Overview
This 87-nucleotide RNA sequence from Metabacillus litoralis belongs to the Rfam family "BsrC". The 301 nucleotide sequence from Kouji Nakamura has been trimmed to a highly conserved ~85 nucleotide long core to form this family. A search with the family's covariance model found it, with a score of 81 bits. Rfam classes the family as a small RNA.
[Rfam]
RNA sequence: AAACCUCAAAACAACGAAAGCCCUACCUCUCUUUCGUCCUUACGGCUCCUAGUCCGCGCCAGUGUGAAUUGAUAAAUACGAAUCUGU
Numbered sequence: 001a002a003a004c005c006u007c008a009a010a011a012c013a014a015c016g017a018a019a020g021c022c023c024u025a026c027c028u029c030u031c032u033u034u035c036g037u038c039c040u041u042a043c044g045g046c047u048c049c050u051a052g053u054c055c056g057c058g059c060c061a062g063u064g065u066g067a068a069u070u071g072a073u074a075a076a077u078a079c080g081a082a083u084c085u086g087u
Stems, first nucleotide, its partner, number of pairs: 034067003039062002041058001043056003047052001